The family of this 70-nucleotide RNA from Oxalobacter vibrioformis is "Fluoride riboswitch aptamer (crcB RNA motif)".
The source organism's lineage runs through Bacteria, Pseudomonadati, Pseudomonadota, Burkholderiales and Oxalobacter.

[Rfam]
RNA sequence: UAACCGCACGGAGAUGGUAUUCCUCCAUUAACCGCUUUCAUUAAAGAAAGCUGAUGAUACCUGCAGACUG
Numbered sequence: 001u002a003a004c005c006g007c008a009c010g011g012a013g014a015u016g017g018u019a020u021u022c023c024u025c026c027a028u029u030a031a032c033c034g035c036u037u038u039c040a041u042u043a044a045a046g047a048a049a050g051c052u053g054a055u056g057a058u059a060c061c062u063g064c065a066g067a068c069u070g
Base pairs, nucleotide, nucleotide: 010026011025012024013023016061017060018059019058020057021056034051035050036049037048038047039046